[Rfam]
RNA sequence: GGGUCCGGCGGGUCGCUGACCUCCAGAAAGAACCGGGGGAAAGAACUCCCGCCCACCCACCCUCCCCGGCCGCGCCGCUCGCGUCACUCGUCCGGGUGACCGGCUUGCAGGUGCGGGAUGCGGACGGUUACGUUCGCCGCGACCACCACAAACAGAUACGGCCCCCGGCCGGGACUGGCAUCCCGAACGAGGGCCUAACCGCUCAGGAAGCGAGACCUUCCCG
Numbered sequence: 001g002g003g004u005c006c007g008g009c010g011g012g013u014c015g016c017u018g019a020c021c022u023c024c025a026g027a028a029a030g031a032a033c034c035g036g037g038g039g040a041a042a043g044a045a046c047u048c049c050c051g052c053c054c055a056c057c058c059a060c061c062c063u064c065c066c067c068g069g070c071c072g073c074g075c076c077g078c079u080c081g082c083g084u085c086a087c088u089c090g091u092c093c094g095g096g097u098g099a100c101c102g103g104c105u106u107g108c109a110g111g112u113g114c115g116g117g118a119u120g121c122g123g124a125c126g127g128u129u130a131c132g133u134u135c136g137c138c139g140c141g142a143c144c145a146c147c148a149c150a151a152a153c154a155g156a157u158a159c160g161g162c163c164c165c166c167g168g169c170c171g172g173g174a175c176u177g178g179c180a181u182c183c184c185g186a187a188c189g190a191g192g193g194c195c196u197a198a199c200c201g202c203u204c205a206g207g208a209a210g211c212g213a214g215a216c217c218u219u220c221c222c223g
Stems, first nucleotide, its partner, number of pairs: 007203004015070004084099006113137004160195005166189002171184004206221005
The record is a 223-nucleotide RNA sequence from Streptomyces sp. DSM 15324, which matches "Streptomyces sRNA 4677" in Rfam. Located in the intergenic region between anti-sigma factor SCO4677 gene and a putative regulatory protein gene SCO4676. scr4677 expression requires the SCO4677 activity and scr4677 sRNA itself seem to affect the levels of the SCO4676-associated transcripts. Lineage of the source: Bacteria > Bacillati > Kitasatosporales > Streptomycetaceae > Streptomyces.